Shown here is a 134-nucleotide RNA sequence from Otolemur garnettii, a member of the family "Small nucleolar RNA SNORA71". On this family, see Ganot et al., Genes Dev 1997: "The family of box ACA small nucleolar RNAs is defined by an evolutionarily conserved secondary structure and ubiquitous sequence elements essential for RNA accumulation". About the family: The members of this family belong to the H/ACA class of snoRNAs which bind a number of proteins (including dyskerin, Gar1p and Nop10p) to form snoRNP complexes. The family has 40 seed sequences and 1,805 matches in Rfam 15.1. Its family is annotated with nucleolus and RNA processing in the Gene Ontology. The family's RNA type in Rfam is H/ACA-box small nucleolar RNA.
RNA sequence: CCCUGCAUUUGAAAGUGAUCAUGGGCUGCCGGUGCCCUGGUCAUUGAUAGUGCAGGGAGAGGAAUCGCUGAAAGCAUUUCCCCGUGUUUGGAGGGCCCUCACCUGUCCCUUACAAACCCUGGAGCUUUCUCACA
Dot-bracket structure: (((((((((....((((((((.((((.......))))))))))))...))))))))).........(..((((((..........((((((((((...........))))).)))))......)))))).)...
Numbered sequence: 001c002c003c004u005g006c007a008u009u010u011g012a013a014a015g016u017g018a019u020c021a022u023g024g025g026c027u028g029c030c031g032g033u034g035c036c037c038u039g040g041u042c043a044u045u046g047a048u049a050g051u052g053c054a055g056g057g058a059g060a061g062g063a064a065u066c067g068c069u070g071a072a073a074g075c076a077u078u079u080c081c082c083c084g085u086g087u088u089u090g091g092a093g094g095g096c097c098c099u100c101a102c103c104u105g106u107c108c109c110u111u112a113c114a115a116a117c118c119c120u121g122g123a124g125c126u127u128u129c130u131c132a133c134a
Stems, first nucleotide, its partner, number of pairs: 001057009014045008023037004067131001070129006086117005091111005